[Rfam]
RNA sequence: UCAGCACCUCGCUAGGCGAGGCUCCUGUACGAACAAAGGCCACUGGUCCCACGACGUCGAGAGACGCCCAGGGCUAGGACAGAUCGUCCCGGAUUAAGGCGCGAUCCAAAGUGGCUUCCCUGCCAGGGGGAUACGUCGUACAGUGCCGAAGCUCUGACGAGAGGGGUGCCUA
Numbered sequence: 001u002c003a004g005c006a007c008c009u010c011g012c013u014a015g016g017c018g019a020g021g022c023u024c025c026u027g028u029a030c031g032a033a034c035a036a037a038g039g040c041c042a043c044u045g046g047u048c049c050c051a052c053g054a055c056g057u058c059g060a061g062a063g064a065c066g067c068c069c070a071g072g073g074c075u076a077g078g079a080c081a082g083a084u085c086g087u088c089c090c091g092g093a094u095u096a097a098g099g100c101g102c103g104a105u106c107c108a109a110a111g112u113g114g115c116u117u118c119c120c121u122g123c124c125a126g127g128g129g130g131a132u133a134c135g136u137c138g139u140a141c142a143g144u145g146c147c148g149a150a151g152c153u154c155u156g157a158c159g160a161g162a163g164g165g166g167u168g169c170c171u172a
Stems, first nucleotide, its partner, number of pairs: 005168006011158001013097001015153003020147003025143008039115005045075005055066004082106004089099002117131003